[Rfam]
RNA sequence: UAUGCAAAUGAUGAUAAUCUAGACAGGGACAUCCGAUCUCCUAAUUAGAGGGUAUGAUGAUUUGUCGUGGGAAUCUCUCUGAUGCAUA
Numbered sequence: 001u002a003u004g005c006a007a008a009u010g011a012u013g014a015u016a017a018u019c020u021a022g023a024c025a026g027g028g029a030c031a032u033c034c035g036a037u038c039u040c041c042u043a044a045u046u047a048g049a050g051g052g053u054a055u056g057a058u059g060a061u062u063u064g065u066c067g068u069g070g071g072a073a074u075c076u077c078u079c080u081g082a083u084g085c086a087u088a
Base pairs, nucleotide, nucleotide: 002087003086004085005084006083
Rfam assigns this 88-nucleotide RNA sequence from Trifolium medium to the family "Small nucleolar RNA R44/J54/Z268 family". Rfam classes the family as a C/D-box small nucleolar RNA. Lineage of the source: Eukaryota > Viridiplantae > Streptophytina > Fabales > Trifolium.